mir-181 microRNA precursor family: an 82-nucleotide RNA from Varanus komodoensis. On this family, see Ambros, Cell 2001: "microRNAs: tiny regulators with great potential". The source organism's lineage runs through Eukaryota, Chordata, Amniota, Unidentata and Varanus. Gene Ontology terms of the family: miRNA-mediated post-transcriptional gene silencing and RISC complex.
RNA sequence: UGGCUUCAGAGAACAUUCAACGCUGUCGGUGAGUUUGACGUCAAAAGUAAACCAUCGACCGUUGACUGUACCUUGAGGUUGA
Numbered sequence: 001u002g003g004c005u006u007c008a009g010a011g012a013a014c015a016u017u018c019a020a021c022g023c024u025g026u027c028g029g030u031g032a033g034u035u036u037g038a039c040g041u042c043a044a045a046a047g048u049a050a051a052c053c054a055u056c057g058a059c060c061g062u063u064g065a066c067u068g069u070a071c072c073u074u075g076a077g078g079u080u081g082a
Base pairs, nucleotide, nucleotide: 001082003080004078005077006076007075008074014068015067017065018064019063020062021061022060025059026058027057028056029055030054031053033052034051035050036049